[Rfam]
RNA sequence: AGCUUUGCGCCGUGGCAGUAUCAUAGCCAAUGGGAUUUAUCUGAGGCGUGAUUAUUGCUAAUUAAAAACUGAACGCUGGUCAGGGACAGUUACUGAAAAUCCAUCAACAAGACCCUGACCAAGACUCUUUUACUGAUUAUCAUCU
Numbered sequence: 001a002g003c004u005u006u007g008c009g010c011c012g013u014g015g016c017a018g019u020a021u022c023a024u025a026g027c028c029a030a031u032g033g034g035a036u037u038u039a040u041c042u043g044a045g046g047c048g049u050g051a052u053u054a055u056u057g058c059u060a061a062u063u064a065a066a067a068a069c070u071g072a073a074c075g076c077u078g079g080u081c082a083g084g085g086a087c088a089g090u091u092a093c094u095g096a097a098a099a100u101c102c103a104u105c106a107a108c109a110a111g112a113c114c115c116u117g118a119c120c121a122a123g124a125c126u127c128u129u130u131u132a133c134u135g136a137u138u139a140u141c142a143u144c145u
Stems, first nucleotide, its partner, number of pairs: 020052005026047003033042003077121009087111001135144003
Shown here is a 145-nucleotide RNA sequence from Canis lupus, a member of the family "U4 spliceosomal RNA".
Rfam 15.1 lists 32,178 matches to the family in 2,547 species.
The family is grouped with related families in Rfam's "U4 clan".
The source organism's lineage runs through Eukaryota, Opisthokonta, Craniata, Gnathostomata and Canis lupus.
The match comes from Rfam's covariance-model search (58 bits).
The base pairs follow the family's consensus structure, which is taken from published work.
A reference for the family is Zhan et al. (2018), "Structures of the human pre-catalytic spliceosome and its precursor spliceosome", Cell Res.
Rfam describes the family as follows. U4 small nuclear RNA (U4 snRNA) is a component of the major U2-dependent spliceosome.